Bacterial RNase P class B: a 388-nucleotide RNA sequence from Oceanobacillus iheyensis. From the family's description: Ribonuclease P (RNase P) is a ubiquitous endoribonuclease, found in archaea, bacteria and eukarya as well as chloroplasts and mitochondria. Rfam's curators put it in the seed alignment.
RNA sequence: UUGCUCAUGUAAUCGCUGCAUCCUUUAGGAUGUAGAGGAAAGUCCAUGCUCACACGAGCUGCGAUGCUCGUAGUGUUCGUGCUUGACGAAGUCAUAAGUCAAGGUAGCUUUAAUGCUAACGGCAGAUAUGAUAUCCUAAGUUAUCUUAAAGAUAAUAUGGAUUCAUUCUUGAAAGUGCCACAGUGACGUAGCUAGAUCGGAAACUUUCUAGGUGGAACGCGGUAAACCCCACGAGUGAGCAACCCAAAUUAAUGGUAGGGGCAUCCUUUUAGUAGGGAAUUAGAACCGAAUAAGGGACAGAUUAAUGAUCUGUAGAUAGAUGAUUACGACCGGCGUACAAGGUUGACCACCGUUUGCAGUACAAUGGUACAGAACAUGGCUUAUCGAG
Number, nucleotide and partner (000 for none) at each position: 001u000002u000003g000004c388005u387006c386007a384008u328009g327010u326011a325012a324013u323014c322015g000016c035017u034018g033019c032020a031021u030022c000023c000024u000025u000026u000027a000028g000029g000030a021031u020032g019033u018034a017035g016036a000037g000038g000039a000040a382041a381042g380043u000044c379045c378046a377047u376048g375049c239050u238051c237052a236053c235054a071055c070056g069057a068058g067059c066060u000061g000062c000063g000064a000065u000066g059067c058068u057069c056070g055071u054072a000073g000074u000075g000076u000077u234078c233079g232080u231081g230082c103083u102084u101085g100086a099087c098088g000089a000090a000091g000092u000093c000094a000095u000096a000097a000098g087099u086100c085101a084102a083103g082104g120105u118106a117107g116108c115109u000110u000111u000112a000113a000114u000115g108116c107117u106118a105119a000120c104121g229122g228123c000124a169125g168126a000127u000128a000129u000130g000131a000132u000133a162134u161135c160136c159137u000138a000139a000140g156141u155142u154143a153144u152145c151146u000147u000148a000149a000150a000151g145152a144153u143154a142155a141156u140157a000158u000159g136160g135161a134162u133163u000164c000165a000166u000167u000168c125169u124170u000171g000172a000173a000174a000175g227176u226177g223178c222179c221180a000181c000182a000183g000184u000185g000186a000187c000188g000189u000190a000191g000192c211193u210194a209195g208196a207197u000198c000199g204200g000201a000202a000203a000204c199205u000206u000207u196208c195209u194210a193211g192212g000213u000214g000215g000216a000217a000218c000219g000220c000221g179222g178223u177224a000225a000226a176227c175228c122229c121230c081231a080232c079233g078234a077235g053236u052237g051238a050239g049240c000241a000242a000243c260244c259245c258246a000247a000248a000249u000250u000251a000252a000253u000254g000255g000256u000257a000258g245259g244260g243261g000262c000263a000264u296265c295266c294267u293268u292269u000270u290271a000272g000273u000274a000275g000276g000277g000278a000279a000280u000281u000282a000283g000284a000285a000286c000287c000288g000289a000290a270291u000292a268293a267294g266295g265296g264297a313298c312299a311300g310301a309302u308303u000304a000305a000306u000307g000308a302309u301310c300311u299312g298313u297314a000315g000316a000317u000318a000319g000320a000321u000322g014323a013324u012325u011326a010327c009328g008329a000330c367331c366332g365333g000334c000335g362336u361337a360338c359339a000340a000341g000342g000343u000344u000345g000346a000347c000348c000349a000350c000351c000352g000353u000354u000355u000356g000357c000358a000359g338360u337361a336362c335363a000364a000365u332366g331367g330368u000369a000370c000371a000372g000373a000374a000375c048376a047377u046378g045379g044380c042381u041382u040383a000384u007385c000386g006387a005388g004